Annotation:
Rfam assigns this 132-nucleotide RNA sequence from Ruminococcus sp. CAG:177 to the family "FMN riboswitch aptamer (RFN element)". NCBI's taxonomy places the organism under Bacteria, Clostridia, Eubacteriales, Oscillospiraceae, Ruminococcus. About the family: The RFN element is a highly conserved domain that is found frequently in the 5'-untranslated regions of prokaryotic mRNAs that encode for flavin mononucleotide (FMN) biosynthesis and transport proteins. Its family is annotated with FMN binding in the Gene Ontology. It scores 108 bits against the family's covariance model.

RNA sequence: CAGGAAUCUCAGGGGCGGGGUGAAAUUCCCCACCGGCGGUGAAGGCGAAAGCCGAAGCCCGCGAGCCGCGAGAGCGGUUGAUCCGGUGCGAUUCCGGAGCCGACGGUAAAGUCCGGAUGGAAGAGGAUGCGA
Numbered sequence: 001c002a003g004g005a006a007u008c009u010c011a012g013g014g015g016c017g018g019g020g021u022g023a024a025a026u027u028c029c030c031c032a033c034c035g036g037c038g039g040u041g042a043a044g045g046c047g048a049a050a051g052c053c054g055a056a057g058c059c060c061g062c063g064a065g066c067c068g069c070g071a072g073a074g075c076g077g078u079u080g081a082u083c084c085g086g087u088g089c090g091a092u093u094c095c096g097g098a099g100c101c102g103a104c105g106g107u108a109a110a111g112u113c114c115g116g117a118u119g120g121a122a123g124a125g126g127a128u129g130c131g132a
Stems, first nucleotide, its partner, number of pairs: 003130001005128001007126004018030003032112002034102002036062004057100002065078003082098005104115003